[Rfam]
Nucleotides: 098
Base pairs, nucleotide, nucleotide: 002095003094004093005092
Number, partner (000 for none) and nucleotide at each position: 001000a002095a003094a004093a005092a006000u007000g008000a009000u010000g011000a012000u013000a014000a015000u016000a017000a018000a019000u020000u021000a022000a023000g024000c025000g026000c027000a028000a029000c030000u031000a032000a033000a034000u035000u036000u037000u038000u039000u040000g041000u042000c043000a044000u045000a046000c047000u048000a049000c050000u051000a052000u053000g054000u055000a056000g057000a058000a059000u060000g061000c062000u063000g064000a065000u066000a067000a068000a069000g070000g071000a072000u073000g074000u075000c076000a077000u078000c079000c080000u081000u082000g083000a084000a085000c086000u087000g088000a089000u090000u091000u092005u093004u094003u095002u096000u097000a098000u